Overview
Shown here is a 69-nucleotide RNA from Pontivivens insulae, a member of the family "L2-Alphaproteobacteria ribosomal protein leader". Rfam classes the family as a cis-regulatory leader. NCBI's taxonomy places the organism under Bacteria, Pseudomonadati, Pseudomonadota, Paracoccaceae, Pontivivens.
RNA sequence: GGGGACCUUCGGGGCCCUCUAAACCGCGGCGGGCUCCCGGCCUGUCGCCAAGCAAACGGAAGACAGCAA
Numbered sequence: 001g002g003g004g005a006c007c008u009u010c011g012g013g014g015c016c017c018u019c020u021a022a023a024c025c026g027c028g029g030c031g032g033g034c035u036c037c038c039g040g041c042c043u044g045u046c047g048c049c050a051a052g053c054a055a056a057c058g059g060a061a062g063a064c065a066g067c068a069a
Base pairs, nucleotide, nucleotide: 001018002017003016004015006014007013008012028046029045030044031043032042033041034040
Pairs were carried over by alignment from the consensus structure, which is taken from published work.